[Rfam]
RNA sequence: GCCUGAGUAGCACAGCAGGUAGUGCGUCUCGCUGUUAACGAGAAGGUCGGAAGUUCGAGUCUUCCCUCAGGCG
Numbered sequence: 001g002c003c004u005g006a007g008u009a010g011c012a013c014a015g016c017a018g019g020u021a022g023u024g025c026g027u028c029u030c031g032c033u034g035u036u037a038a039c040g041a042g043a044a045g046g047u048c049g050g051a052a053g054u055u056c057g058a059g060u061c062u063u064c065c066c067u068c069a070g071g072c073g
Stems, first nucleotide, its partner, number of pairs: 001072007010025004027043005049065005